Rfam assigns this 73-nucleotide RNA from Artemisia annua to the family "Small nucleolar RNA Z105". It is annotated as a C/D-box small nucleolar RNA. For this family Rfam cites "The high diversity of snoRNAs in plants: identification and comparative study of 120 snoRNA genes from Oryza sativa" (Chen et al., Nucleic Acids Res, 2003). Gene Ontology terms of the family: nucleolus and RNA processing.
[Rfam]
RNA sequence: GGAGCAUAAUGAUGAUUGUUUUUUUAUUUCCGCUUUGAUUUCAGAUUGGAUAUCAACCUCCUACUCAUUCUGA
Numbered sequence: 001g002g003a004g005c006a007u008a009a010u011g012a013u014g015a016u017u018g019u020u021u022u023u024u025u026a027u028u029u030c031c032g033c034u035u036u037g038a039u040u041u042c043a044g045a046u047u048g049g050a051u052a053u054c055a056a057c058c059u060c061c062u063a064c065u066c067a068u069u070c071u072g073a
Base pairs, nucleotide, nucleotide: 006068007067009065030049031048034043